The family of this 102-nucleotide RNA from Treponema denticola is "TD-2 RNA". A search with the family's covariance model found it, with a score of 51 bits.

RNA sequence: UUUUGCAAAGCAAAACUACAUACAAUAAACGAUGUUUUGUGUAAAGCACAAAACUCGCAGAUAAACAGUAAGGCAGAAUUCCUGCCGAGCUGUUUAUCCUGC
Numbered sequence: 001u002u003u004u005g006c007a008a009a010g011c012a013a014a015a016c017u018a019c020a021u022a023c024a025a026u027a028a029a030c031g032a033u034g035u036u037u038u039g040u041g042u043a044a045a046g047c048a049c050a051a052a053a054c055u056c057g058c059a060g061a062u063a064a065a066c067a068g069u070a071a072g073g074c075a076g077a078a079u080u081c082c083u084g085c086c087g088a089g090c091u092g093u094u095u096a097u098c099c100u101g102c
Base pairs, nucleotide, nucleotide: 001010002009030057031056032055034054035053036052037051038050039049040048041047060098061097062096063095064094065093066092067091068090069089072086073085074084075083
Dot-bracket structure: ((......))...................(((.((((((((.....)))))))))))..((((((((((..((((.......))))..))))))))))....
The family is grouped with related families in Rfam's "TD (Treponema denticola) motifs".
Rfam 15.1 lists 310 matches to the family in 11 species.